[Rfam]
RNA: Alphaproteobacterial ar14
Organism: Mesorhizobium zhangyense
RNA sequence: UUGGGUUGCUGGUGAUCGACCUCCUCCCCGAAAGCCAGCAUCAAUGCAGUGCACCUCCUCCCGCGCUGCAUUUUAAAUAGAGCCCGCCGCACCUCCUCCCGCGGCGGGCUUUUUUC
Numbered sequence: 001u002u003g004g005g006u007u008g009c010u011g012g013u014g015a016u017c018g019a020c021c022u023c024c025u026c027c028c029c030g031a032a033a034g035c036c037a038g039c040a041u042c043a044a045u046g047c048a049g050u051g052c053a054c055c056u057c058c059u060c061c062c063g064c065g066c067u068g069c070a071u072u073u074u075a076a077a078u079a080g081a082g083c084c085c086g087c088c089g090c091a092c093c094u095c096c097u098c099c100c101g102c103g104g105c106g107g108g109c110u111u112u113u114u115u116c
Base pairs, nucleotide, nucleotide: 007040008039009038011036012035013034016031017030043072044071045070046069047068048067049066050065051064080111081110082109083108084107085106086105087104088103089102090101